[Rfam]
RNA: MIR480 microRNA precursor family
Organism: Salix dunnii
RNA sequence: UAAUCUAUUUAGGGGUAAAUCAUCACUUAGUUAUAAUAAACAUCUACAUGACUAUUUAGAAUAGCCUGUUAUCCGUAAGUUUGAAUAUAUAUUAUUUAAUAAGUUCAUCACAUGUCAUAAACAUGAAAUAUAUA
Numbered sequence: 001u002a003a004u005c006u007a008u009u010u011a012g013g014g015g016u017a018a019a020u021c022a023u024c025a026c027u028u029a030g031u032u033a034u035a036a037u038a039a040a041c042a043u044c045u046a047c048a049u050g051a052c053u054a055u056u057u058a059g060a061a062u063a064g065c066c067u068g069u070u071a072u073c074c075g076u077a078a079g080u081u082u083g084a085a086u087a088u089a090u091a092u093u094a095u096u097u098a099a100u101a102a103g104u105u106c107a108u109c110a111c112a113u114g115u116c117a118u119a120a121a122c123a124u125g126a127a128a129u130a131u132a133u134a
Stems, first nucleotide, its partner, number of pairs: 004132001006130002008127002012124001015122002019118002024114002028110001030109001032107001